[Rfam]
RNA: Small nucleolar RNA U3
RNA sequence: AAGACCAUACUUUCAAGGAUCAUUUCUACAUUUUGUUACUAGACAAGUUUCUCUGAAUGUGUAGAGAGCACUGGAAACUACCAGGAGGAGGCACAGCAUUCUCUCCUGAGCAUGAAGCUGGUUCUUGAUGUUGCUUCUGUGAAUGCCAUUCACCAUUGAUACUGGUUGGUUCUUCUCUUCCUUUGGGAGAGCAAGAGGGAGAGGUGCGGUCUGAG
Dot-bracket structure: .((..((.(.(....((((....))))..).).))...))........((...(......)..))...............(..............((((.(((((((..((........(((...((.(.((((....))))..).))...)))..............))..(((((((((...))))))).))..))))))))))).......)
Numbered sequence: 001a002a003g004a005c006c007a008u009a010c011u012u013u014c015a016a017g018g019a020u021c022a023u024u025u026c027u028a029c030a031u032u033u034u035g036u037u038a039c040u041a042g043a044c045a046a047g048u049u050u051c052u053c054u055g056a057a058u059g060u061g062u063a064g065a066g067a068g069c070a071c072u073g074g075a076a077a078c079u080a081c082c083a084g085g086a087g088g089a090g091g092c093a094c095a096g097c098a099u100u101c102u103c104u105c106c107u108g109a110g111c112a113u114g115a116a117g118c119u120g121g122u123u124c125u126u127g128a129u130g131u132u133g134c135u136u137c138u139g140u141g142a143a144u145g146c147c148a149u150u151c152a153c154c155a156u157u158g159a160u161a162c163u164g165g166u167u168g169g170u171u172c173u174u175c176u177c178u179u180c181c182u183u184u185g186g187g188a189g190a191g192c193a194a195g196a197g198g199g200a201g202a203g204g205u206g207c208g209g210u211c212u213g214a215g
Stems, first nucleotide, its partner, number of pairs: 002040002006035002009032001011030001016027004049065002054061001081215001096207004101203007110170002120154003126148002129145001131142004173194002175191007